[Rfam]
RNA sequence: CAGGCAUGCUGGAGCCCCGCAGCGGCGCCUGGGAUGAAAGUUCCCGACUCCGUAAACCUAUCCGGGGCUUAU
Numbered sequence: 001c002a003g004g005c006a007u008g009c010u011g012g013a014g015c016c017c018c019g020c021a022g023c024g025g026c027g028c029c030u031g032g033g034a035u036g037a038a039a040g041u042u043c044c045c046g047a048c049u050c051c052g053u054a055a056a057c058c059u060a061u062c063c064g065g066g067g068c069u070u071a072u
Base pairs, nucleotide, nucleotide: 012070013069014068015067016066017065018064019063023052024051025050030046031045032044033043034041
Dot-bracket structure: ...........((((((((...(((....(((((......).))))...)))..........))))))))..
Rfam assigns this 72-nucleotide RNA from Hoeflea marina to the family "ybhL leader". About the family: This family is a putative regulatory RNA structure that is found upstream of an uncharacterized membrane protein in alpha-proteobacteria. Its family is annotated with regulation of gene expression in the Gene Ontology. The pairing is the family consensus, mapped onto this sequence. On this family, see Corbino et al., Genome Biol 2005: "Evidence for a second class of S-adenosylmethionine riboswitches and other regulatory RNA motifs in alpha-proteobacteria". The organism belongs to Hoeflea, within Bacteria.